[Rfam]
RNA: mir-10 microRNA precursor family
Organism: Muraenolepis orangiensis
RNA sequence: CUAUAUCUACCCUGUAGAUCCGGAUUUGUGUGAACCCUGCUAUACCAAUCACAAAUUCGCUUCUAGGGGAGUAUAUAGU
Numbered sequence: 001c002u003a004u005a006u007c008u009a010c011c012c013u014g015u016a017g018a019u020c021c022g023g024a025u026u027u028g029u030g031u032g033a034a035c036c037c038u039g040c041u042a043u044a045c046c047a048a049u050c051a052c053a054a055a056u057u058c059g060c061u062u063c064u065a066g067g068g069g070a071g072u073a074u075a076u077a078g079u
Stems, first nucleotide, its partner, number of pairs: 002077005010069003016064003021059010